[Rfam]
RNA sequence: GUGGGUUACGGGGACAUGAAGCCUAUAACAGUUGGGGGUAAAAUAGUGGGCUCGUUGUGCGCCAUAGCAGGUGUCCUGACCAUUGCGCUUCCAGUCCCCGUCAUCGUGUCCAAC
Numbered sequence: 001g002u003g004g005g006u007u008a009c010g011g012g013g014a015c016a017u018g019a020a021g022c023c024u025a026u027a028a029c030a031g032u033u034g035g036g037g038g039u040a041a042a043a044u045a046g047u048g049g050g051c052u053c054g055u056u057g058u059g060c061g062c063c064a065u066a067g068c069a070g071g072u073g074u075c076c077u078g079a080c081c082a083u084u085g086c087g088c089u090u091c092c093a094g095u096c097c098c099c100g101u102c103a104u105c106g107u108g109u110c111c112a113a114c
Base pairs, nucleotide, nucleotide: 001114002113004111005110007108008107009106010105011104013102014101015100018097020095037077038076040074049063050062051061

Source information:
A member of the RNA family "Potassium channel RNA editing signal" from Triplophysa rosa, 114 nucleotides long. By type it is a cis-regulatory element. It scores 105 bits against the family's covariance model. NCBI's taxonomy places the organism under Eukaryota, Bilateria, Deuterostomia, Otomorpha, Triplophysa.